[Rfam]
RNA sequence: GGAGGCGGACGGAGGCUGGUGUCUCCCCCGGACUUCAAAUCCGGCGGCCCCAUCAAGGAUGGGGUGGUAGGUUCGAUUCCUAUCCGCCUCC
Numbered sequence: 001g002g003a004g005g006c007g008g009a010c011g012g013a014g015g016c017u018g019g020u021g022u023c024u025c026c027c028c029c030g031g032a033c034u035u036c037a038a039a040u041c042c043g044g045c046g047g048c049c050c051c052a053u054c055a056a057g058g059a060u061g062g063g064g065u066g067g068u069a070g071g072u073u074c075g076a077u078u079c080c081u082a083u084c085c086g087c088c089u090c091c
Stems, first nucleotide, its partner, number of pairs: 001091009011026006028044005047065005068082004
Dot-bracket structure: (((((((((.((((((....)))))).(((((.......)))))..(((((.........)))))..((((.......)))))))))))))
Selenocysteine transfer RNA: a 91-nucleotide RNA sequence from Desulfurobacterium thermolithotrophum. Lineage of the source: Bacteria > Pseudomonadati > Aquificia > Desulfurobacteriaceae > Desulfurobacterium thermolithotrophum. The literature on the family includes a 2000 paper in FEBS Lett by Mizutani and Goto, "Eukaryotic selenocysteine tRNA has the 9/4 secondary structure".